[Rfam]
pemK RNA: a 107-nucleotide sequence from Hydrogeniiclostridium mannosilyticum. The family's RNA type in Rfam is cis-regulatory element. A search with the family's covariance model found it, with a score of 42 bits.
RNA sequence: UUAAAGAUACUCCCGCCCGGCCGAGAACGGACGUUGUUCGUUUUAAACCGUCCGCAGCCAAUGAGGGCGGCUGCAUAAGAACCAUGCAGAGGGUGGAAAGCCCGUGG
Number, nucleotide and partner (000 for none) at each position: 001u000002u000003a000004a000005a000006g000007a000008u000009a000010c000011u000012c104013c070014c069015g068016c067017c066018c065019g000020g000021c000022c000023g000024a000025g000026a000027a000028c000029g000030g000031a000032c000033g000034u000035u000036g000037u000038u000039c000040g000041u000042u000043u000044u000045a000046a000047a000048c000049c000050g000051u000052c000053c000054g000055c000056a000057g000058c000059c000060a000061a000062u000063g000064a000065g018066g017067g016068c015069g014070g013071c089072u088073g087074c000075a085076u084077a000078a000079g000080a000081a000082c000083c000084a076085u075086g000087c073088a072089g071090a000091g103092g102093g101094u000095g000096g000097a000098a000099a000100g000101c093102c092103c091104g012105u000106g000107g000